[Rfam]
RNA sequence: UGGCUGUCGUGGUCAUAAAUUUAGGAGGUUGCCUUUUAGCUUGGGCGUCGCUUCACAUUCCACUUGUGCAUGUGUGCCUUGCUCGGAGCUUCGGGUCGUCCAUCGUACUCGUGUGUGUAAACCACGAUUGCUACGGGGCGCUAAGCAAUGGAGAUGACACUUGAGGGAAGCAAUUCUGCAGAGACAUUUCCACCCGGAGCUGGCGGCGUGAGAAUACACCGUGACAAGAUACGCGAAGUUUCAAGCUUGUCUGGCGAUCAACUUUUUUGUU
Numbered sequence: 001u002g003g004c005u006g007u008c009g010u011g012g013u014c015a016u017a018a019a020u021u022u023a024g025g026a027g028g029u030u031g032c033c034u035u036u037u038a039g040c041u042u043g044g045g046c047g048u049c050g051c052u053u054c055a056c057a058u059u060c061c062a063c064u065u066g067u068g069c070a071u072g073u074g075u076g077c078c079u080u081g082c083u084c085g086g087a088g089c090u091u092c093g094g095g096u097c098g099u100c101c102a103u104c105g106u107a108c109u110c111g112u113g114u115g116u117g118u119a120a121a122c123c124a125c126g127a128u129u130g131c132u133a134c135g136g137g138g139c140g141c142u143a144a145g146c147a148a149u150g151g152a153g154a155u156g157a158c159a160c161u162u163g164a165g166g167g168a169a170g171c172a173a174u175u176c177u178g179c180a181g182a183g184a185c186a187u188u189u190c191c192a193c194c195c196g197g198a199g200c201u202g203g204c205g206g207c208g209u210g211a212g213a214a215u216a217c218a219c220c221g222u223g224a225c226a227a228g229a230u231a232c233g234c235g236a237a238g239u240u241u242c243a244a245g246c247u248u249g250u251c252u253g254g255c256g257a258u259c260a261a262c263u264u265u266u267u268u269g270u271u
Base pairs, nucleotide, nucleotide: 001015002014003013004012019268023264024263025262027259028258029257030256031255032254033253040245041244042243043242044241045239046238048236049235050234051233065226066225067224069223070222071221072220074219075218076217078212079211080210081209082208083206084205085204087201088200089199090198091197092196093195094194095193097140100138101137104135105134106133107132109127110126111125112124113123115122116121141145149192150191151190152189153188154187155186160183161182162181167176168175169174